[Rfam]
A member of the RNA family "small nucleolar RNA snoR114" from Chenopodium quinoa, 91 nucleotides long.
The base pairs follow the family's consensus structure, which was predicted with RNAalifold.
On this family, see Chen and Wu, Nucleic Acids Res 2009: "Mining small RNA sequencing data: a new approach to identify small nucleolar RNAs in Arabidopsis".
The match comes from Rfam's covariance-model search (53 bits).
RNA sequence: AAGCUAUGAAGAAUUCUGCGCAUGAUGUGGCACUUUAGGGUCCGCCACCCUCUUCUGAUCAACCUGAAGAAGCUAAUGUGCAUAUGAGCUU
Numbered sequence: 001a002a003g004c005u006a007u008g009a010a011g012a013a014u015u016c017u018g019c020g021c022a023u024g025a026u027g028u029g030g031c032a033c034u035u036u037a038g039g040g041u042c043c044g045c046c047a048c049c050c051u052c053u054u055c056u057g058a059u060c061a062a063c064c065u066g067a068a069g070a071a072g073c074u075a076a077u078g079u080g081c082a083u084a085u086g087a088g089c090u091u
Stems, first nucleotide, its partner, number of pairs: 001091004